RNA sequence: GGCCCAAAUUUGAAGUAGAGUAGAUUAGUAGUAUUAGCUGACCCUACUAACCUACUGUAUUUCAAUUUUGAGCCC
Numbered sequence: 001g002g003c004c005c006a007a008a009u010u011u012g013a014a015g016u017a018g019a020g021u022a023g024a025u026u027a028g029u030a031g032u033a034u035u036a037g038c039u040g041a042c043c044c045u046a047c048u049a050a051c052c053u054a055c056u057g058u059a060u061u062u063c064a065a066u067u068u069u070g071a072g073c074c075c
Stems, first nucleotide, its partner, number of pairs: 001074003005070004011064007019056005025050006034041002
A member of the RNA family "mir-5928 microRNA precursor family" from Haemonchus placei, 75 nucleotides long. Gene Ontology terms of the family: miRNA-mediated post-transcriptional gene silencing and RISC complex. It scores 70 bits against the family's covariance model.